[Rfam]
RNA: purD RNA motif
RNA sequence: GUAGUAAUCUUUGUGUGUCGGUGUUUGCGCUUGAGCUACUUUGAGAUAGUGAGCAUUCGCCGCCUAAUGAGAUUCUCUUAACCCUAUUUGUGGCUUUUUUAGGCUACGCAAAUCGGGGUAACGCUCAUUUGGGG
Numbered sequence: 001g002u003a004g005u006a007a008u009c010u011u012u013g014u015g016u017g018u019c020g021g022u023g024u025u026u027g028c029g030c031u032u033g034a035g036c037u038a039c040u041u042u043g044a045g046a047u048a049g050u051g052a053g054c055a056u057u058c059g060c061c062g063c064c065u066a067a068u069g070a071g072a073u074u075c076u077c078u079u080a081a082c083c084c085u086a087u088u089u090g091u092g093g094c095u096u097u098u099u100u101a102g103g104c105u106a107c108g109c110a111a112a113u114c115g116g117g118g119u120a121a122c123g124c125u126c127a128u129u130u131g132g133g134g
Stems, first nucleotide, its partner, number of pairs: 003076002006074005019062005026055003035050004090107007